[Rfam]
RNA sequence: AGGCGAUCCAGAGGAGUGCCACUGAGAACACAAGCGCGGGUUCCUUUGUCAGGUGCUCUGGAUCGCAUGCGAUUGUGUUCUCAGGUCACCCCUUUGGGUUGCUU
Numbered sequence: 001a002g003g004c005g006a007u008c009c010a011g012a013g014g015a016g017u018g019c020c021a022c023u024g025a026g027a028a029c030a031c032a033a034g035c036g037c038g039g040g041u042u043c044c045u046u047u048g049u050c051a052g053g054u055g056c057u058c059u060g061g062a063u064c065g066c067a068u069g070c071g072a073u074u075g076u077g078u079u080c081u082c083a084g085g086u087c088a089c090c091c092c093u094u095u096g097g098g099u100u101g102c103u104u
Stems, first nucleotide, its partner, number of pairs: 007098002011094004016089003024082010
The family of this 104-nucleotide RNA sequence from Aegilops tauschii is "MIR398 microRNA precursor family".
NCBI's taxonomy places the organism under Eukaryota, Streptophyta, Streptophytina, commelinids, Aegilops tauschii.
Gene Ontology terms of the family: RISC complex and miRNA-mediated post-transcriptional gene silencing.
Rfam 15.1 lists 627 matches to the family in 211 species.
The family's consensus secondary structure was predicted with WAR.